[Rfam]
RNA sequence: GGUGUGCGAUAGACUUACCUCCACGUGGCGCACUCUAGGCAACGUAUACUUAUACGGCAAAAAAGUUUAU
Numbered sequence: 001g002g003u004g005u006g007c008g009a010u011a012g013a014c015u016u017a018c019c020u021c022c023a024c025g026u027g028g029c030g031c032a033c034u035c036u037a038g039g040c041a042a043c044g045u046a047u048a049c050u051u052a053u054a055c056g057g058c059a060a061a062a063a064a065g066u067u068u069a070u
Stems, first nucleotide, its partner, number of pairs: 001036002004033004018028002043056005
RNA: HDV ribozyme from F. prausnitzii